[Rfam]
RNA: Small nucleolar RNA SNORA33
RNA sequence: AAGCCAGACAAUUAAUUUGUCUCUAACAAUGUUUCUGUAGAAAUUUAGAAAAAGAUGGCAAUGGUAAUGCAGUAUUACAAGUCCUGAGGACAACAGUCAUUAGGUCCCUGAAAAUGGCUACAAUA
Numbered sequence: 001a002a003g004c005c006a007g008a009c010a011a012u013u014a015a016u017u018u019g020u021c022u023c024u025a026a027c028a029a030u031g032u033u034u035c036u037g038u039a040g041a042a043a044u045u046u047a048g049a050a051a052a053a054g055a056u057g058g059c060a061a062u063g064g065u066a067a068u069g070c071a072g073u074a075u076u077a078c079a080a081g082u083c084c085u086g087a088g089g090a091c092a093a094c095a096g097u098c099a100u101u102a103g104g105u106c107c108c109u110g111a112a113a114a115u116g117g118c119u120a121c122a123a124u125a
Base pairs, nucleotide, nucleotide: 003059004058005057006056016041017040018039019038020037069118070117072115081105083104084103085102086101087100089098090097091096